MIR397 microRNA precursor family: a 101-nucleotide RNA from Solanum commersonii. The organism belongs to Solanum, within Eukaryota. On this family, see Mica et al., BMC Genomics 2009: "High throughput approaches reveal splicing of primary microRNA transcripts and tissue specific expression of mature microRNAs in Vitis vinifera". Rfam links the family to the GO terms miRNA-mediated post-transcriptional gene silencing and RISC complex. Rfam 15.1 lists 496 matches to the family in 218 species. The base pairs follow the family's consensus structure, which was predicted with WAR. The match comes from Rfam's covariance-model search (71 bits).
RNA sequence: CUUACAAACAUCAUUGAGUGCAGCGUUGAUGACAUAUUUGAGAAUUUCUGUAUUUAUGCCUUUCUCAUUUUUCAUCAACACUACACUCAAUCAUGUUUUUA
Numbered sequence: 001c002u003u004a005c006a007a008a009c010a011u012c013a014u015u016g017a018g019u020g021c022a023g024c025g026u027u028g029a030u031g032a033c034a035u036a037u038u039u040g041a042g043a044a045u046u047u048c049u050g051u052a053u054u055u056a057u058g059c060c061u062u063u064c065u066c067a068u069u070u071u072u073c074a075u076c077a078a079c080a081c082u083a084c085a086c087u088c089a090a091u092c093a094u095g096u097u098u099u100u101a
Stems, first nucleotide, its partner, number of pairs: 006098006013091008022082002025079004030074003